Rfam assigns this 140-nucleotide RNA from Dichanthelium oligosanthes to the family "MIR2118 microRNA precursor family".
RNA sequence: GCGUGGAAGAGGAAGAAAAGAGAGUCAAAGAGCAGUGGGCAUGAGAACAUAGAGGAAGGCCUUUGGAAAUCUCAUUUUGGGUCUUCCCGAUGCCUCUCAUGCCUAUUGGUCUUUGGUUCUCCUUCCUUUUCCUUUCAGCU
Numbered sequence: 001g002c003g004u005g006g007a008a009g010a011g012g013a014a015g016a017a018a019a020g021a022g023a024g025u026c027a028a029a030g031a032g033c034a035g036u037g038g039g040c041a042u043g044a045g046a047a048c049a050u051a052g053a054g055g056a057a058g059g060c061c062u063u064u065g066g067a068a069a070u071c072u073c074a075u076u077u078u079g080g081g082u083c084u085u086c087c088c089g090a091u092g093c094c095u096c097u098c099a100u101g102c103c104u105a106u107u108g109g110u111c112u113u114u115g116g117u118u119c120u121c122c123u124u125c126c127u128u129u130u131c132c133u134u135u136c137a138g139c140u
Stems, first nucleotide, its partner, number of pairs: 009131005015125003020121003025116007033108002036105011048092003052088001054087007

Rfam links the family to the GO terms miRNA-mediated post-transcriptional gene silencing and RISC complex. Pairs were carried over by alignment from the consensus structure, which was predicted with RNAalifold.